A member of the RNA family "Acido-Lenti-1 RNA" from Candidatus Moduliflexus flocculans, 45 nucleotides long.
By type it is a small RNA.

RNA sequence: CCCAGGGCUGUGCCCUGGGCUAAUAUGAUUCGCGCCGUUGGCGCG
Numbered sequence: 001c002c003c004a005g006g007g008c009u010g011u012g013c014c015c016u017g018g019g020c021u022a023a024u025a026u027g028a029u030u031c032g033c034g035c036c037g038u039u040g041g042c043g044c045g
Stems, first nucleotide, its partner, number of pairs: 001019008032044005